RNA sequence: AAACAGUCUCUUAUGUUUUGAUUCUUUAGUAGUUUUGGACCCCCAAGACAAAAACAAAAAAAAAUUGACACGUGGCACCUACCACGUCAGCGUUGACCGAGUCAACAAUGGACUGAGGGUCCAAAACUGCCAAAGAAUCAAAACAUAGGUGGCUGUUU
Numbered sequence: 001a002a003a004c005a006g007u008c009u010c011u012u013a014u015g016u017u018u019u020g021a022u023u024c025u026u027u028a029g030u031a032g033u034u035u036u037g038g039a040c041c042c043c044c045a046a047g048a049c050a051a052a053a054a055c056a057a058a059a060a061a062a063a064a065u066u067g068a069c070a071c072g073u074g075g076c077a078c079c080u081a082c083c084a085c086g087u088c089a090g091c092g093u094u095g096a097c098c099g100a101g102u103c104a105a106c107a108a109u110g111g112a113c114u115g116a117g118g119g120u121c122c123a124a125a126a127c128u129g130c131c132a133a134a135g136a137a138u139c140a141a142a143a144c145a146u147a148g149g150u151g152g153c154u155g156u157u158u
Base pairs, nucleotide, nucleotide: 001158002157004155005154006153007152008151012147013146014145015144016143017142018141019140020139021138022137023136024135025134026133027132029130030129031128032127033126034125035124036123037122038121039120040119041118042117044115045114070087071086073084074083075082

MIR2619 microRNA precursor family: a 158-nucleotide RNA from Medicago truncatula. Rfam links the family to the GO terms miRNA-mediated post-transcriptional gene silencing and RISC complex. A search with the family's covariance model found it, with a score of 143 bits. NCBI's taxonomy places the organism under Eukaryota, Euphyllophyta, rosids, Trifolieae, Medicago.